[Rfam]
The family of this 73-nucleotide RNA sequence from Magnetovibrio blakemorei is "tRNA". Transfer RNA (tRNA) molecules are approximately 80 nucleotides in length. Their secondary structure includes four short double-helical elements and three loops (D, anti-codon, and T loops). Further hydrogen bonds mediate the characteristic L-shaped molecular structure. tRNAs have two regions of fundamental functional importance: the anti-codon, which is responsible for specific mRNA codon recognition, and the 3' end, to which the tRNAs corresponding amino acid is attached (by aminoacyl-tRNA synthetases). tRNAs cope with the degeneracy of the genetic code in two manners: having more than one tRNA (with a specific anti-codon) for a particular amino acid; and 'wobble' base-pairing, i.e. permitting non-standard base-pairing at the 3rd anti-codon position. The base pairs follow the family's consensus structure, which is taken from published work.
RNA sequence: GGGCACAUAGCUCAGUUGGUAGAGCAUUCGACUUUUAAUCGAACGGCCGCAGGUUCGAAUCCUGCUGUGCCCA
Numbered sequence: 001g002g003g004c005a006c007a008u009a010g011c012u013c014a015g016u017u018g019g020u021a022g023a024g025c026a027u028u029c030g031a032c033u034u035u036u037a038a039u040c041g042a043a044c045g046g047c048c049g050c051a052g053g054u055u056c057g058a059a060u061c062c063u064g065c066u067g068u069g070c071c072c073a
Base pairs, nucleotide, nucleotide: 001072002071003070004069005068006067007066010025011024012023013022027043028042029041030040031039049065050064051063052062053061